[Rfam]
A member of the RNA family "Plant signal recognition particle RNA" from Cucurbita maxima, 291 nucleotides long. Rfam classes the family as a non-coding RNA gene. A search with the family's covariance model found it, with a score of 167 bits. Gene Ontology terms of the family: SRP-dependent cotranslational protein targeting to membrane, signal sequence recognition and signal recognition particle, endoplasmic reticulum targeting. The family is grouped with related families in Rfam's "SRP clan".
RNA sequence: GCUGAGCUUGGUAAUGUGAGCUUGUAACCCAUAUGGGGGCAACAAAGUGGUUGGAAGUUGGCUCUCGGCCAAUUGGUUAGGGUUGUUGGAGUUGUUCUUUGGCCUGUCCAUUCCAAGUAGGGAGUUGGGCUAUGGGCUUUAGGCGAAGGCCUAGUGUCCAUGGCCCUUAGAGUUGAUGGAAACCGCGUGAGGCUGGUUUAACAGAGCAAUGUAACCAUCCGCUCUCGUCCGAUGGAAGGAUAGCGGGUCAAUAUAAAUUUCUGGGUAGUUCUCAGCCUGACAUCCACAUUU
Numbered sequence: 001g002c003u004g005a006g007c008u009u010g011g012u013a014a015u016g017u018g019a020g021c022u023u024g025u026a027a028c029c030c031a032u033a034u035g036g037g038g039g040c041a042a043c044a045a046a047g048u049g050g051u052u053g054g055a056a057g058u059u060g061g062c063u064c065u066c067g068g069c070c071a072a073u074u075g076g077u078u079a080g081g082g083u084u085g086u087u088g089g090a091g092u093u094g095u096u097c098u099u100u101g102g103c104c105u106g107u108c109c110a111u112u113c114c115a116a117g118u119a120g121g122g123a124g125u126u127g128g129g130c131u132a133u134g135g136g137c138u139u140u141a142g143g144c145g146a147a148g149g150c151c152u153a154g155u156g157u158c159c160a161u162g163g164c165c166c167u168u169a170g171a172g173u174u175g176a177u178g179g180a181a182a183c184c185g186c187g188u189g190a191g192g193c194u195g196g197u198u199u200a201a202c203a204g205a206g207c208a209a210u211g212u213a214a215c216c217a218u219c220c221g222c223u224c225u226c227g228u229c230c231g232a233u234g235g236a237a238g239g240a241u242a243g244c245g246g247g248u249c250a251a252u253a254u255a256a257a258u259u260u261c262u263g264g265g266u267a268g269u270u271c272u273c274a275g276c277c278u279g280a281c282a283u284c285c286a287c288a289u290u291u
Stems, first nucleotide, its partner, number of pairs: 001040003004023007028037003044290002047287004052282002056278002058275003061271001064268002069264003085258001087257001091254001093253002099251009108239002111237005117229001120226006127166011139154006167172001175219005185212004193204003